[Rfam]
RNA sequence: AACUGAAAAGGCAAACUUGCCGAAAGGCAAGGACGCAAAGCUACGGGUCUAAAGCCCGGCAUUUUCUUGAGAAAAAAUGCCGGGCCAGGACCGCCGGGCCGCCGAAC
Number, nucleotide and partner (000 for none) at each position: 001a000002a000003c104004u000005g000006a000007a000008a000009a000010g000011g036012c035013a000014a000015a000016c031017u030018u029019g028020c027021c026022g000023a000024a000025a000026g021027g020028c019029a018030a017031g016032g000033a000034c093035g012036c011037a000038a000039a000040g099041c098042u097043a000044c096045g095046g094047g091048u090049c089050u000051a000052a000053a000054g000055c000056c000057c000058g000059g000060c000061a000062u000063u000064u000065u000066c000067u000068u000069g000070a000071g000072a000073a000074a000075a000076a000077a000078u000079g000080c000081c000082g000083g000084g000085c000086c000087a000088g000089g049090a048091c047092c000093g034094c046095c045096g044097g042098g041099c040100c000101g000102c000103c000104g003105a000106a000107c000
Rfam assigns this 107-nucleotide RNA from Syntrophobotulus glycolicus to the family "c-di-GMP-I-GGC riboswitch aptamer". A search with the family's covariance model found it, with a score of 69 bits. Lineage of the source: Bacteria > Bacillota > Eubacteriales > Desulfitobacteriaceae > Syntrophobotulus glycolicus.